Shown here is a 110-nucleotide sequence from Oceanibaculum pacificum, a member of the family "rpsB sRNA". By type it is a small RNA. For this family Rfam cites "Identification of candidate structured RNAs in the marine organism 'Candidatus Pelagibacter ubique'" (Meyer et al., BMC Genomics, 2009). Rfam 15.1 lists 245 matches to the family in 245 species.
[Rfam]
RNA sequence: CGCACGCGGGUCGCGUGGCCGGGGCCGAUAGGCCACGGUCGCUCCGGUGUCUGGUUUCACAGCCAGGCGAACUGCCCGCGGAGGAUUAACCGGAAAAUGACAGGACACUU
Numbered sequence: 001c002g003c004a005c006g007c008g009g010g011u012c013g014c015g016u017g018g019c020c021g022g023g024g025c026c027g028a029u030a031g032g033c034c035a036c037g038g039u040c041g042c043u044c045c046g047g048u049g050u051c052u053g054g055u056u057u058c059a060c061a062g063c064c065a066g067g068c069g070a071a072c073u074g075c076c077c078g079c080g081g082a083g084g085a086u087u088a089a090c091c092g093g094a095a096a097a098u099g100a101c102a103g104g105a106c107a108c109u110u
Base pairs, nucleotide, nucleotide: 001083003081005080006079007078008077009076010075011074015042016041026037027036049068050067051066052065053064054063055062056061